[Rfam]
RNA sequence: ACCCCCUGACCAUGGGCAAAGAAACACCUCAUUAGUGGUGGUUUUUUAAUAUUAAGUCAGGGGCAAAACAAAUGGAAGGCCUUUGUUCAUCCCAGCUUGAUGCCUAACUUGGUGGCCAAAGCUGUUUCAUGUCCAGAGCACAGUC
Number, nucleotide and partner (000 for none) at each position: 001a000002c000003c063004c062005c061006c060007u059008g058009a000010c000011c056012a000013u054014g053015g052016g000017c000018a000019a000020a047021g046022a000023a042024a000025c040026a039027c038028c037029u000030c000031a000032u000033u000034a000035g000036u000037g028038g027039u026040g025041g000042u023043u000044u000045u000046u021047u020048a000049a000050u000051a000052u015053u014054a013055a000056g011057u000058c008059a007060g006061g005062g004063g003064c000065a000066a000067a000068a000069c000070a000071a000072a000073u000074g000075g000076a000077a000078g000079g000080c000081c000082u000083u000084u140085g139086u138087u137088c136089a000090u000091c000092c000093c000094a000095g000096c000097u000098u000099g133100a132101u131102g000103c000104c000105u129106a000107a127108c000109u000110u124111g123112g000113u121114g000115g000116c000117c000118a000119a000120a000121g113122c000123u111124g110125u000126u000127u107128c000129a105130u000131g101132u100133c099134c000135a000136g088137a087138g086139c085140a084141c000142a000143g000144u000145c000
A member of the RNA family "Small nucleolar RNA SNORA48" from Jaculus jaculus, 145 nucleotides long. The family's consensus secondary structure was predicted with RNAalifold. It scores 65 bits against the family's covariance model. The family has 24 seed sequences and 2,109 matches in Rfam 15.1. Rfam classes the family as an H/ACA-box small nucleolar RNA. Its Rfam clan is "SNORA48 clan".